[Rfam]
RNA sequence: AAUCUUUAUGUUGAAUAUCCAAAGACAGUAAGCGACCACAGGUCGUAAUAUCCCAGCUUACCGAGGAAACGACUUUAUAAGAGAUUUUGUCUCGCCGUUUCCGCUUGGAUUCGGCGAUUUUUUAUGAAACUU
Numbered sequence: 001a002a003u004c005u006u007u008a009u010g011u012u013g014a015a016u017a018u019c020c021a022a023a024g025a026c027a028g029u030a031a032g033c034g035a036c037c038a039c040a041g042g043u044c045g046u047a048a049u050a051u052c053c054c055a056g057c058u059u060a061c062c063g064a065g066g067a068a069a070c071g072a073c074u075u076u077a078u079a080a081g082a083g084a085u086u087u088u089g090u091c092u093c094g095c096c097g098u099u100u101c102c103g104c105u106u107g108g109a110u111u112c113g114g115c116g117a118u119u120u121u122u123u124a125u126g127a128a129a130c131u132u
Stems, first nucleotide, its partner, number of pairs: 028061006034044003092117006100109002

The family of this 132-nucleotide RNA sequence from Faecalibacterium sp. CAG:1138 is "Ribosomal protein L10 leader". About the family: This family is a putative r-protein leader autoregulatory structure found in B. subtilis and other low-GC Gram-positive bacteria. The family's RNA type in Rfam is cis-regulatory leader. NCBI's taxonomy places the organism under Bacteria, Bacillati, Bacillota, Eubacteriales, Faecalibacterium.